[Rfam]
RNA: mir-242 microRNA precursor family
Organism: Caenorhabditis brenneri
RNA sequence: GAAAAAAUAUUGCGUAGGCCUUUGCUUCGAAAGCCACUUGUCCCACAUUCGUAGCAAUAUCCUACGCAAUAUUUUUAC
Numbered sequence: 001g002a003a004a005a006a007a008u009a010u011u012g013c014g015u016a017g018g019c020c021u022u023u024g025c026u027u028c029g030a031a032a033g034c035c036a037c038u039u040g041u042c043c044c045a046c047a048u049u050c051g052u053a054g055c056a057a058u059a060u061c062c063u064a065c066g067c068a069a070u071a072u073u074u075u076u077a078c
Base pairs, nucleotide, nucleotide: 003076004075005074006073007072008071009070010069011068012067013066014065016063017062018061022057023056024055025054026053028051029050030049031048